[Rfam]
RNA sequence: CGCGCUUGCACGGGAGAGUUCCGGGACCGCCAGUUCCGGACGCCGAAGGAGCAAUACCUCCCCGUCAAUCUCUCAGGCACACGGACCGUGUGAGCUUC
Numbered sequence: 001c002g003c004g005c006u007u008g009c010a011c012g013g014g015a016g017a018g019u020u021c022c023g024g025g026a027c028c029g030c031c032a033g034u035u036c037c038g039g040a041c042g043c044c045g046a047a048g049g050a051g052c053a054a055u056a057c058c059u060c061c062c063c064g065u066c067a068a069u070c071u072c073u074c075a076g077g078c079a080c081a082c083g084g085a086c087c088g089u090g091u092g093a094g095c096u097u098c
Base pairs, nucleotide, nucleotide: 006093007092008091009090010089011088012087013086020040021039022038023037024036025035042078043077044076045074046073049072050071051070056065057064